[Rfam]
Overview: Twister_sister_ribozyme: an 81-nucleotide RNA sequence. Its family is annotated with catalytic activity in the Gene Ontology.
RNA sequence: UUGACCCGCAAGGCCGACGCCACCCGCGCCGCCGGUGCAAGCCCGGCCACCCUGCAAGGGGUGGGCGCUCAUGGGUAACAA
Numbered sequence: 001u002u003g004a005c006c007c008g009c010a011a012g013g014c015c016g017a018c019g020c021c022a023c024c025c026g027c028g029c030c031g032c033c034g035g036u037g038c039a040a041g042c043c044c045g046g047c048c049a050c051c052c053u054g055c056a057a058g059g060g061g062u063g064g065g066c067g068c069u070c071a072u073g074g075g076u077a078a079c080a081a
Stems, first nucleotide, its partner, number of pairs: 004076004013066003018028003031047004048063006